RNA sequence: AUACAGUGAUGAUCUACUUCUGGUUUCGCUUUUUGCUGAGAUCCAGUGAUGUUGCCUUUCUCUUGGCUGUCUGAGUGU
Numbered sequence: 001a002u003a004c005a006g007u008g009a010u011g012a013u014c015u016a017c018u019u020c021u022g023g024u025u026u027c028g029c030u031u032u033u034u035g036c037u038g039a040g041a042u043c044c045a046g047u048g049a050u051g052u053u054g055c056c057u058u059u060c061u062c063u064u065g066g067c068u069g070u071c072u073g074a075g076u077g078u
Stems, first nucleotide, its partner, number of pairs: 001078004
Small nucleolar RNA SNORD53/SNORD92: a 78-nucleotide RNA from Ornithorhynchus anatinus. It scores 82 bits against the family's covariance model. On this family, see Kiss-Laszlo et al., Cell 1996: "Site-specific ribose methylation of preribosomal RNA: a novel function for small nucleolar RNAs". The organism belongs to Ornithorhynchus, within Eukaryota. The family's RNA type in Rfam is C/D-box small nucleolar RNA. The family is grouped with related families in Rfam's "SNORD52 clan".